[Rfam]
RNA sequence: GAGUGUGUGGAUGGUGUUCAGCACCAAGGACAGGUGUGUUAAACUGUGUGUAGAUGGUGUUCAGCACCAAGGACAGGUGUGUUUGCCU
Numbered sequence: 001g002a003g004u005g006u007g008u009g010g011a012u013g014g015u016g017u018u019c020a021g022c023a024c025c026a027a028g029g030a031c032a033g034g035u036g037u038g039u040u041a042a043a044c045u046g047u048g049u050g051u052a053g054a055u056g057g058u059g060u061u062c063a064g065c066a067c068c069a070a071g072g073a074c075a076g077g078u079g080u081g082u083u084u085g086c087c088u
Base pairs, nucleotide, nucleotide: 003074004073012069013068014067015066016065017064018063020061021060022059023058024057025056026055028049030047031046032045033044035042
Dot-bracket structure: ..((.......(((((((.(((((((.(.((((.(......).)))).).....))))))).)))))))...))..............